6S-Flavo RNA: a 104-nucleotide RNA. Rfam classes the family as a small RNA. The family's consensus secondary structure is taken from published work.

[Rfam]
RNA sequence: ACUCAACACUAAUUUUAUUAAAAAAGGUGAGUCUGUUUGCUAGAGCGUGCCUGAAGAGGAUUAUCGAAUAUUCAGUUAGCCUUAAACCUGUAUAAACAGAGUUU
Numbered sequence: 001a002c003u004c005a006a007c008a009c010u011a012a013u014u015u016u017a018u019u020a021a022a023a024a025a026g027g028u029g030a031g032u033c034u035g036u037u038u039g040c041u042a043g044a045g046c047g048u049g050c051c052u053g054a055a056g057a058g059g060a061u062u063a064u065c066g067a068a069u070a071u072u073c074a075g076u077u078a079g080c081c082u083u084a085a086a087c088c089u090g091u092a093u094a095a096a097c098a099g100a101g102u103u104u
Stems, first nucleotide, its partner, number of pairs: 024083005034074002038070001043065002050059003